[Rfam]
RNA sequence: CUCUGGUCCCGCAUGAGGUCCAGGGCGGAAAGAG
Numbered sequence: 001c002u003c004u005g006g007u008c009c010c011g012c013a014u015g016a017g018g019u020c021c022a023g024g025g026c027g028g029a030a031a032g033a034g
Stems, first nucleotide, its partner, number of pairs: 001025005009018002
RNA: L31-Firmicutes ribosomal protein leader